A member of the RNA family "SAM (S-adenosyl methionine) riboswitch aptamer" from Streptomyces liangshanensis, 115 nucleotides long.
NCBI's taxonomy places the organism under Bacteria, Actinomycetes, Kitasatosporales, Streptomycetaceae, Streptomyces.

RNA sequence: GGUUAUGAGAGUCAGCGACAAGCCCUGGGUUUGCUGACCGGCAACCCUCCUGACGCGGCGGGGUGCUCCAGGUGACGACCCGGCGGAGCCAAUGACGGCAGCGCAAGCGCGAGAG
Number, nucleotide and partner (000 for none) at each position: 001g080002g079003u078004u077005a000006u000007g000008a000009g039010a000011g038012u037013c036014a035015g034016c033017g000018a000019c000020a000021a031022g030023c000024c000025c000026u000027g000028g000029g000030u022031u021032u000033g016034c015035u014036g013037a012038c011039c009040g067041g066042c065043a000044a000045c063046c062047c061048u000049c058050c057051u000052g000053a000054c000055g000056c000057g050058g049059c000060g000061g047062g046063g045064u000065g042066c041067u040068c000069c000070a000071g000072g000073u000074g000075a000076c000077g004078a003079c002080c001081c000082g000083g104084c103085g102086g000087a000088g099089c098090c097091a000092a000093u000094g000095a000096c000097g090098g089099c088100a000101g000102c085103g084104c083105a000106a000107g000108c000109g000110c000111g000112a000113g000114a000115g000